RNA sequence: CCCCCAUUCGCUUCUAACAAGAAGCCUGCGCCCCUGAGAGUCCCGGGAGCGCCGCCGGUCGGUGCCCGGCGCGCCGGGCCAUGCAGCGACGGCCGCGGCGGAGCUCCGAGCGGCGGUAGCGCCCCGCUGUAAAGCGGUUCGCGAUGCCCCGGCCACAGUGAACUGCCACCCGCCCGAAAACGCUCCGCUCCGGACCAGCUCAGCCUCGGAUACGCUGGACUCCGCGCGCCCGCAAGAAACACCGAGGAGUCGAGGGAGCGGCAAGCGCGGGGAAGGCCUCCCCGCACGAUCGGGGAAACCCACCGGUGCAGCUGGGGGACACACACUUGGGCUGGCACAGGCAGCUAGGG
Numbered sequence: 001c002c003c004c005c006a007u008u009c010g011c012u013u014c015u016a017a018c019a020a021g022a023a024g025c026c027u028g029c030g031c032c033c034c035u036g037a038g039a040g041u042c043c044c045g046g047g048a049g050c051g052c053c054g055c056c057g058g059u060c061g062g063u064g065c066c067c068g069g070c071g072c073g074c075c076g077g078g079c080c081a082u083g084c085a086g087c088g089a090c091g092g093c094c095g096c097g098g099c100g101g102a103g104c105u106c107c108g109a110g111c112g113g114c115g116g117u118a119g120c121g122c123c124c125c126g127c128u129g130u131a132a133a134g135c136g137g138u139u140c141g142c143g144a145u146g147c148c149c150c151g152g153c154c155a156c157a158g159u160g161a162a163c164u165g166c167c168a169c170c171c172g173c174c175c176g177a178a179a180a181c182g183c184u185c186c187g188c189u190c191c192g193g194a195c196c197a198g199c200u201c202a203g204c205c206u207c208g209g210a211u212a213c214g215c216u217g218g219a220c221u222c223c224g225c226g227c228g229c230c231c232g233c234a235a236g237a238a239a240c241a242c243c244g245a246g247g248a249g250u251c252g253a254g255g256g257a258g259c260g261g262c263a264a265g266c267g268c269g270g271g272g273a274a275g276g277c278c279u280c281c282c283c284g285c286a287c288g289a290u291c292g293g294g295g296a297a298a299c300c301c302a303c304c305g306g307u308g309c310a311g312c313u314g315g316g317g318g319a320c321a322c323a324c325a326c327u328u329g330g331g332c333u334g335g336c337a338c339a340g341g342c343a344g345c346u347a348g349g350g
Stems, first nucleotide, its partner, number of pairs: 001295004006290001008289003021043001023041001026036001028034001045282005051277003057111001059109004065101002067098001069096003073093004078087002113159002116156002119154001121153003129147003134142003163272001164269003169265001172262002175260002181256001183254003187250005195218005200210002203207001221245002224242001228240001298346001300344001303341002306338004310333003315328003